[Rfam]
Record summary:
The family of this 67-nucleotide sequence from Strongylocentrotus purpuratus is "mir-2002 microRNA precursor family".
RNA sequence: AUAAGACCAACAGGUGUUAUUCUCAUGUGUGAUGUACAGAUCUGUGAAUACAUCUGCUGGUUUUUAU
Numbered sequence: 001a002u003a004a005g006a007c008c009a010a011c012a013g014g015u016g017u018u019a020u021u022c023u024c025a026u027g028u029g030u031g032a033u034g035u036a037c038a039g040a041u042c043u044g045u046g047a048a049u050a051c052a053u054c055u056g057c058u059g060g061u062u063u064u065u066a067u
Stems, first nucleotide, its partner, number of pairs: 003064007011056007019049004024044002028038004

The sequence is in the family's curated seed alignment. Its family is annotated with miRNA-mediated post-transcriptional gene silencing and RISC complex in the Gene Ontology.